Background:
Rfam assigns this 124-nucleotide sequence from Cnephaeus nilssonii to the family "Small nucleolar RNA SNORA8". NCBI's taxonomy places the organism under Eukaryota, Metazoa, Sarcopterygii, Laurasiatheria, Cnephaeus. Its Rfam clan is "SNORA8 clan". The family's RNA type in Rfam is H/ACA-box small nucleolar RNA. Its family is annotated with nucleolus and RNA processing in the Gene Ontology. Rfam 15.1 lists 1,490 matches to the family in 610 species. ACA8 is a member of the H/ACA class of snoRNA that guide the sites of modification of uridines to pseudouridines. Pairs were carried over by alignment from the consensus structure, which was predicted with RNAfold.

RNA sequence: UGCACUGCAUGGUCUCUGCAUUCAGUAGUUUAUUCUUGCUGCGUGUUCAAAGGACAGUGCAAUAUAAAUUCAGUAUUGGCAUUGUUGGUUUUCUUGGCUUUGUGCUAUUUUUAUUGAGACAUUA
Numbered sequence: 001u002g003c004a005c006u007g008c009a010u011g012g013u014c015u016c017u018g019c020a021u022u023c024a025g026u027a028g029u030u031u032a033u034u035c036u037u038g039c040u041g042c043g044u045g046u047u048c049a050a051a052g053g054a055c056a057g058u059g060c061a062a063u064a065u066a067a068a069u070u071c072a073g074u075a076u077u078g079g080c081a082u083u084g085u086u087g088g089u090u091u092u093c094u095u096g097g098c099u100u101u102g103u104g105c106u107a108u109u110u111u112u113a114u115u116g117a118g119a120c121a122u123u124a
Stems, first nucleotide, its partner, number of pairs: 002060006015053003018046004023041006063113002066110004078106005